A member of the RNA family "Small nucleolar RNA SNORD63" from Erinaceus europaeus, 74 nucleotides long. The literature on the family includes a 2002 paper in Mol Cell Biol by Galardi et al., "Purified box C/D snoRNPs are able to reproduce site-specific 2'-O-methylation of target RNA in vitro". The family's RNA type in Rfam is C/D-box small nucleolar RNA. The source organism's lineage runs through Eukaryota, Deuterostomia, Craniata, Sarcopterygii and Erinaceus.
RNA sequence: GUGCAGUGAUGCAUUUUAUUCAUCAACACAUCAUUCUGAAAAUACAGAUGUGUGGAAAAUUAGUACUGAGCACA
Numbered sequence: 001g002u003g004c005a006g007u008g009a010u011g012c013a014u015u016u017u018a019u020u021c022a023u024c025a026a027c028a029c030a031u032c033a034u035u036c037u038g039a040a041a042a043u044a045c046a047g048a049u050g051u052g053u054g055g056a057a058a059a060u061u062a063g064u065a066c067u068g069a070g071c072a073c074a
Base pairs, nucleotide, nucleotide: 001073002072003071004070